glmS glucosamine-6-phosphate activated ribozyme aptamer: a 170-nucleotide RNA from Lentibacillus halodurans. A search with the family's covariance model found it, with a score of 108 bits. The organism belongs to Lentibacillus, within Bacteria.
RNA sequence: UCAUAAAGAAAAGCGCCUGGACUAUUUUUGACCGGUAAUGAAAAUAGUUGACGAGGUGGAGGUUAUCGAACUUGAUCGGCGGGUACCUCUCGGCUGCACAUCUCAGUCGUGAUGCUUUUUCCGAAAACAGUGAGGCGACUUACUGCACAAAGGAUAAAGUAAAAGAUGCG
Numbered sequence: 001u002c003a004u005a006a007a008g009a010a011a012a013g014c015g016c017c018u019g020g021a022c023u024a025u026u027u028u029u030g031a032c033c034g035g036u037a038a039u040g041a042a043a044a045u046a047g048u049u050g051a052c053g054a055g056g057u058g059g060a061g062g063u064u065a066u067c068g069a070a071c072u073u074g075a076u077c078g079g080c081g082g083g084u085a086c087c088u089c090u091c092g093g094c095u096g097c098a099c100a101u102c103u104c105a106g107u108c109g110u111g112a113u114g115c116u117u118u119u120u121c122c123g124a125a126a127a128c129a130g131u132g133a134g135g136c137g138a139c140u141u142a143c144u145g146c147a148c149a150a151a152g153g154a155u156a157a158a159g160u161a162a163a164a165g166a167u168g169c170g
Stems, first nucleotide, its partner, number of pairs: 020049008029040001058090005066079004091109006114160005120154001128145007